A member of the RNA family "Yersinia sRNA 276" from Photobacterium proteolyticum, 192 nucleotides long. The family's consensus secondary structure was predicted with RNAfold. The match comes from Rfam's covariance-model search (103 bits). NCBI's taxonomy places the organism under Bacteria, Pseudomonadota, Vibrionales, Vibrionaceae, Photobacterium.
RNA sequence: CACUGACAUCAUGGCUUCGUUUUUCGAGCCUUGGCCAACCGCCAGGUAAGAUGUCAUACCCAGCUCUUUCAUUUCUUGCUCACCGAUGAUCUUGGUGCUGACUGUUUCAAAGUCAUCCGCCAGGCGGCGUGCCUGGGAAGCCAGAUAGGCAGGGUUUGCCACAUUUGGUGGCAUAUUGCCAAGAUCUUUACC
Numbered sequence: 001c002a003c004u005g006a007c008a009u010c011a012u013g014g015c016u017u018c019g020u021u022u023u024u025c026g027a028g029c030c031u032u033g034g035c036c037a038a039c040c041g042c043c044a045g046g047u048a049a050g051a052u053g054u055c056a057u058a059c060c061c062a063g064c065u066c067u068u069u070c071a072u073u074u075c076u077u078g079c080u081c082a083c084c085g086a087u088g089a090u091c092u093u094g095g096u097g098c099u100g101a102c103u104g105u106u107u108c109a110a111a112g113u114c115a116u117c118c119g120c121c122a123g124g125c126g127g128c129g130u131g132c133c134u135g136g137g138a139a140g141c142c143a144g145a146u147a148g149g150c151a152g153g154g155u156u157u158g159c160c161a162c163a164u165u166u167g168g169u170g171g172c173a174u175a176u177u178g179c180c181a182a183g184a185u186c187u188u189u190a191c192c
Stems, first nucleotide, its partner, number of pairs: 005186002013031002016028004033043003050059001062077002078132002081129001083127003087123001092119001094117004099109003135159001137157003141153002164183006